[Rfam]
RNA sequence: CAGCACUUGAUACUAACCAAGCUAUCUGUAUCCUAGCCUGUGUCAAAGGCUUGUGAUGUGUGGUGAUAGCUAGGUUGAGGAAGUGCAAUAUUAAAACAAAAGCCAUGAUUUUUUAAGCCCAGUGUGUAAAGAUACACUCUGAGUUAUAACUCAAUGGCACAACU
Number, nucleotide and partner (000 for none) at each position: 001c000002a000003g086004c085005a084006c083007u082008u081009g000010a000011u000012a000013c000014u000015a076016a075017c074018c073019a000020a071021g070022c069023u068024a067025u066026c065027u060028g059029u058030a057031u056032c055033c053034u000035a051036g050037c049038c048039u047040g000041u000042g000043u000044c000045a000046a000047a039048g038049g037050c036051u035052u000053g033054u000055g032056a031057u030058g029059u028060g027061u000062g000063g000064u000065g026066a025067u024068a023069g022070c021071u020072a000073g018074g017075u016076u015077g000078a000079g000080g000081a008082a007083g006084u005085g004086c003087a000088a000089u000090a000091u000092u000093a000094a000095a000096a000097c000098a000099a000100a000101a000102g158103c157104c156105a000106u000107g000108a000109u000110u000111u000112u000113u000114u000115a000116a000117g000118c000119c000120c000121a000122g137123u136124g135125u134126g133127u132128a000129a000130a000131g000132a127133u126134a125135c124136a123137c122138u000139c000140u153141g152142a151143g150144u149145u000146a000147u000148a000149a144150c143151u142152c141153a140154a000155u000156g104157g103158c102159a000160c000161a000162a000163c000164u000
RNA: Small Cajal body specific RNA 1
Organism: Molossus molossus